[Rfam]
RNA sequence: GGGGCUGACUGGUUUUGACAGCAAGGCCAAUGUGUAAGUAAGCAUGCAGUGAAAUGUUGUGUACUCACUUUAAUCAGGCACUUCAACUUUUUAACUGGCAACGAAGAGUACGCUUUAGCUGCAUAAUUCUGAAUCAAGUAGGAAUUUGCCCAGUCUGUAUUAGAUACAGAAGCUGAAUGUCCCUCAAAAGCCUUGACUUACGGCGUUUGAUUAAGGGACACGGGAAAGUAAGAAUAGGAAUCCUAGUGCAUCGGAUGGGUUCCGAGAUUUUAAGAUGAUAAGCGGUUGACAGAGUGUUUGUUCUCAGUUAAUCGUCGAAAAUUAAGAAUAAACUAAGCAUGUAGAAAGCUUAUGUGUUGCUUGUUUGGACGCGGGUUCGAAUCCCGCCAGCUCCACUU
Numbered sequence: 001g002g003g004g005c006u007g008a009c010u011g012g013u014u015u016u017g018a019c020a021g022c023a024a025g026g027c028c029a030a031u032g033u034g035u036a037a038g039u040a041a042g043c044a045u046g047c048a049g050u051g052a053a054a055u056g057u058u059g060u061g062u063a064c065u066c067a068c069u070u071u072a073a074u075c076a077g078g079c080a081c082u083u084c085a086a087c088u089u090u091u092u093a094a095c096u097g098g099c100a101a102c103g104a105a106g107a108g109u110a111c112g113c114u115u116u117a118g119c120u121g122c123a124u125a126a127u128u129c130u131g132a133a134u135c136a137a138g139u140a141g142g143a144a145u146u147u148g149c150c151c152a153g154u155c156u157g158u159a160u161u162a163g164a165u166a167c168a169g170a171a172g173c174u175g176a177a178u179g180u181c182c183c184u185c186a187a188a189a190g191c192c193u194u195g196a197c198u199u200a201c202g203g204c205g206u207u208u209g210a211u212u213a214a215g216g217g218a219c220a221c222g223g224g225a226a227a228g229u230a231a232g233a234a235u236a237g238g239a240a241u242c243c244u245a246g247u248g249c250a251u252c253g254g255a256u257g258g259g260u261u262c263c264g265a266g267a268u269u270u271u272a273a274g275a276u277g278a279u280a281a282g283c284g285g286u287u288g289a290c291a292g293a294g295u296g297u298u299u300g301u302u303c304u305c306a307g308u309u310a311a312u313c314g315u316c317g318a319a320a321a322u323u324a325a326g327a328a329u330a331a332a333c334u335a336a337g338c339a340u341g342u343a344g345a346a347a348g349c350u351u352a353u354g355u356g357u358u359g360c361u362u363g364u365u366u367g368g369a370c371g372c373g374g375g376u377u378c379g380a381a382u383c384c385c386g387c388c389a390g391c392u393c394c395a396c397u398u
Base pairs, nucleotide, nucleotide: 001394002393003392004391005390006389007388019367020366021364022363023362024361025360030357031356032355033354034353035352036351037350038349039348043341044340045339046338047337048069049068050067051066052065055085056084059081060080061079114177115176116175117174118173119172120171122169178220179219180218181217182216183215185209186208187207188206190204191203193202197232198231199230200229201228237263238262239261240260241259242258243257249277250276251275252274282315283314284313285312286311287310288309289308290307292305293304294303296333297332298331299330301327302326371387372386373385374384375383
A member of the RNA family "transfer-messenger RNA" from Faecalibacter rhinopitheci, 398 nucleotides long. Taxonomically the source falls in Faecalibacter (Bacteria, Pseudomonadati, Bacteroidota, Flavobacteriales). A search with the family's covariance model found it, with a score of 151 bits. Bacterial tmRNA, also known as 10Sa RNA or SsrA, is named for its dual tRNA and mRNA-like properties. Its role is to liberate the mRNA from a stalled ribosome. To accomplish this part of the tmRNA is used as a reading frame that ends in a translation stop signal. Gene Ontology term of the family: RNA catabolic process. The family's RNA type in Rfam is non-coding RNA gene.